[Rfam]
RNA sequence: CCUGUGGUUGAAUGAUGAGGUUAAUGUUGGUAGGGACAUCUGAGUUAAAAUGAAGAAGCGCCAACAGCUCUGACCAUAGAGG
Numbered sequence: 001c002c003u004g005u006g007g008u009u010g011a012a013u014g015a016u017g018a019g020g021u022u023a024a025u026g027u028u029g030g031u032a033g034g035g036a037c038a039u040c041u042g043a044g045u046u047a048a049a050a051u052g053a054a055g056a057a058g059c060g061c062c063a064a065c066a067g068c069u070c071u072g073a074c075c076a077u078a079g080a081g082g
Stems, first nucleotide, its partner, number of pairs: 001082003005078001
RNA: Small nucleolar RNA SNORD74
Organism: Gouania willdenowi